[Rfam]
RNA sequence: GUGGCGGUAACGCUUGCAUCGAGGGGCCACACACUGGUACACGUUACCACGGGCAUCCCCUGGGAAGGUCUGAGUCAAAGGUCAUGAGUAUCGCCAAGCAGGCGACCCUGGUAACCCCAGGGGUGGUUCACCAAAAACCGAGGCGUGGACGAGGCACACGUUACGAAGCAAGGGAAACCCGUCUUGAGUCAGGGGGUGGAUGCUAAGUGCCUCGUUUGACUUGGAACGAACCAUGACCAGCUUAUCUAAGUCCGAUGUGCGAGGUGGUAUCGACGCCAUAACUCAAUUCAGACUACUCUACCGACCAC
Number, nucleotide and partner (000 for none) at each position: 001g308002u307003g306004g305005c000006g000007g301008u300009a299010a000011c000012g000013c000014u261015u000016g000017c000018a000019u000020c000021g000022a061023g060024g059025g058026g057027c000028c000029a000030c000031a000032c000033a000034c000035u049036g048037g047038u046039a045040c000041a000042c000043g000044u000045u039046a038047c037048c036049a035050c000051g000052g000053g000054c000055a000056u000057c026058c025059c024060c023061u022062g000063g000064g000065a000066a000067g000068g000069u000070c291071u290072g289073a288074g287075u000076c000077a000078a000079a000080g238081g237082u236083c235084a000085u000086g000087a000088g000089u000090a000091u105092c104093g103094c102095c101096a000097a000098g000099c000100a000101g095102g094103c093104g092105a091106c122107c121108c120109u119110g118111g117112u000113a000114a000115c000116c000117c111118c110119a109120g108121g107122g106123g234124u233125g232126g231127u230128u229129c228130a000131c000132c000133a000134a000135a000136a000137a000138c000139c000140g000141a000142g000143g220144c000145g000146u000147g000148g000149a000150c000151g000152a000153g000154g000155c000156a000157c000158a000159c000160g000161u000162u000163a000164c000165g000166a000167a000168g000169c000170a000171a000172g000173g000174g000175a000176a000177a000178c000179c000180c000181g000182u000183c000184u000185u000186g000187a000188g000189u000190c000191a000192g000193g000194g000195g000196g000197u000198g000199g000200a000201u000202g000203c000204u000205a000206a000207g000208u000209g000210c000211c000212u000213c000214g000215u000216u000217u000218g000219a000220c143221u000222u000223g000224g000225a000226a000227c000228g129229a128230a127231c126232c125233a124234u123235g083236a082237c081238c080239a000240g000241c000242u000243u000244a000245u000246c000247u000248a000249a000250g000251u000252c000253c000254g000255a000256u000257g000258u000259g000260c000261g014262a000263g000264g279265u278266g277267g276268u275269a000270u000271c000272g000273a000274c000275g268276c267277c266278a265279u264280a000281a000282c000283u000284c000285a000286a000287u074288u073289c072290a071291g070292a000293c000294u000295a000296c000297u000298c000299u009300a008301c007302c000303g000304a000305c004306c003307a002308c001
RNA: Nuclear RNase P